The family of this 74-nucleotide RNA is "mir-87 microRNA precursor family". Gene Ontology terms of the family: RISC complex and miRNA-mediated post-transcriptional gene silencing. The literature on the family includes a 2003 paper in Dev Biol by Sempere et al., "Temporal regulation of microRNA expression in Drosophila melanogaster mediated by hormonal signals and broad-Complex gene activity". The base pairs follow the family's consensus structure, which was predicted with RNAalifold. A search with the family's covariance model found it, with a score of 51 bits. Rfam 15.1 lists 420 matches to the family in 285 species.

RNA sequence: UUCGGACGAGCCUGACUCCUUGCUCUGCCCGGUUUUUAUCGUCAGGGUGAGCAAAGUUUCAGGUGAGUUCGUGG
Numbered sequence: 001u002u003c004g005g006a007c008g009a010g011c012c013u014g015a016c017u018c019c020u021u022g023c024u025c026u027g028c029c030c031g032g033u034u035u036u037u038a039u040c041g042u043c044a045g046g047g048u049g050a051g052c053a054a055a056g057u058u059u060c061a062g063g064u065g066a067g068u069u070c071g072u073g074g
Base pairs, nucleotide, nucleotide: 003071004070005069006068007067010064011063012062013061014060015059018056020054021053023051024050025049028047029046030045